[Rfam]
RNA sequence: UCUAGAACUCGAGAUAUGAGUUGAACACUGAAUAGUGUUUGGGUUGCAGGACAAAUUCGGACUUAUCCGUUGUUGCUAUAAUUUGGACUUGAAAACAACCUUUUUAAAUCUUGGACUCCACAUGAAAGUUGUAGGCCUAUGUCUUACCGAAUCUAUC
Numbered sequence: 001u002c003u004a005g006a007a008c009u010c011g012a013g014a015u016a017u018g019a020g021u022u023g024a025a026c027a028c029u030g031a032a033u034a035g036u037g038u039u040u041g042g043g044u045u046g047c048a049g050g051a052c053a054a055a056u057u058c059g060g061a062c063u064u065a066u067c068c069g070u071u072g073u074u075g076c077u078a079u080a081a082u083u084u085g086g087a088c089u090u091g092a093a094a095a096c097a098a099c100c101u102u103u104u105u106a107a108a109u110c111u112u113g114g115a116c117u118c119c120a121c122a123u124g125a126a127a128g129u130u131g132u133a134g135g136c137c138u139a140u141g142u143c144u145u146a147c148c149g150a151a152u153c154u155a156u157c
Base pairs, nucleotide, nucleotide: 003155004154005153006152009146011145012144013143014142015141016140017139018138020136021134022133023132025130027129028128029127035123036122037121041119042118043117045115048112049111050110051109054105055104059100060099063097072088073087074086
Rfam assigns this 157-nucleotide sequence from Populus tomentosa to the family "MIR2912 microRNA precursor family". NCBI's taxonomy places the organism under Eukaryota, Viridiplantae, Embryophyta, Mesangiospermae, Populus.